[Rfam]
RNA sequence: GUGAGGUGAUGACGCAGUUUAUCCAUUCUCUGAGUGCAGUGGAGCUGCCCUCCUGCACACCCAGCUCCUGUUCUGGGCUCUGGGUGCUGGGCAGCCUCCAGACACCCUGCAGUGUCCCAGUGUCCUGCUGGGGCUGCUGGGUGUGUGGCUGGCUGCCUGCAGGAGGGGAGCAGCGCUGGCAGGGCUGGAGCCCUCUUGGGGAGCUCCAGCCUCACUGGGACGAGGGCUGGUGUCUGAUCAC
Numbered sequence: 001g002u003g004a005g006g007u008g009a010u011g012a013c014g015c016a017g018u019u020u021a022u023c024c025a026u027u028c029u030c031u032g033a034g035u036g037c038a039g040u041g042g043a044g045c046u047g048c049c050c051u052c053c054u055g056c057a058c059a060c061c062c063a064g065c066u067c068c069u070g071u072u073c074u075g076g077g078c079u080c081u082g083g084g085u086g087c088u089g090g091g092c093a094g095c096c097u098c099c100a101g102a103c104a105c106c107c108u109g110c111a112g113u114g115u116c117c118c119a120g121u122g123u124c125c126u127g128c129u130g131g132g133g134c135u136g137c138u139g140g141g142u143g144u145g146u147g148g149c150u151g152g153c154u155g156c157c158u159g160c161a162g163g164a165g166g167g168g169a170g171c172a173g174c175g176c177u178g179g180c181a182g183g184g185c186u187g188g189a190g191c192c193c194u195c196u197u198g199g200g201g202a203g204c205u206c207c208a209g210c211c212u213c214a215c216u217g218g219g220a221c222g223a224g225g226g227c228u229g230g231u232g233u234c235u236g237a238u239c240a241c
Stems, first nucleotide, its partner, number of pairs: 010240003017233002020230001023226002026224003030219002034215002039180002042177001044174005049167002051164007058086007067077003091156006104142003109137004115133008182213002184210006191201002
The record is a 241-nucleotide RNA sequence from Spizella passerina, which matches "Small nucleolar RNA SNORD17" in Rfam. The snoRNA HBI-43 belongs to the C/D family of snoRNAs, guiding 2'O-ribose methylation at position U3797 of the 28S rRNA. Pseudouridylation in position U3797 is predicted to be guided by the H/ACA snoRNA ACA48. Lineage of the source: Eukaryota > Eumetazoa > Deuterostomia > Archelosauria > Spizella. The base pairs follow the family's consensus structure, which was predicted with RNAalifold. For this family Rfam cites "RNomics: an experimental approach that identifies 201 candidates for novel, small, non-messenger RNAs in mouse" (Huttenhofer et al., EMBO J, 2001). It scores 112 bits against the family's covariance model.